Shown here is a 60-nucleotide sequence from Tranquillimonas rosea, a member of the family "terC RNA". By type it is a cis-regulatory element.
RNA sequence: CGUGGUGACCGGGCCCCUCUGGCGAGAGUUUUCGGCGCUCUCGUGAUGUCGGCACCACCA
Numbered sequence: 001c002g003u004g005g006u007g008a009c010c011g012g013g014c015c016c017c018u019c020u021g022g023c024g025a026g027a028g029u030u031u032u033c034g035g036c037g038c039u040c041u042c043g044u045g046a047u048g049u050c051g052g053c054a055c056c057a058c059c060a
Stems, first nucleotide, its partner, number of pairs: 006054002009052004022044008